A member of the RNA family "L17 ribosomal protein downstream element" from Streptococcus pneumoniae, 72 nucleotides long.
RNA sequence: GAGUGUUAUGAUGAUGGAGUCUUGUGCUCUUAGUCUAGCUCUGGUCUACCGCUAGGAUUUCGGUCCUAGCGG
Dot-bracket structure: ((((.....(((...(((((.....)))))..)))..)))).......(((((((((......)))))))))
The family's consensus secondary structure is taken from published work.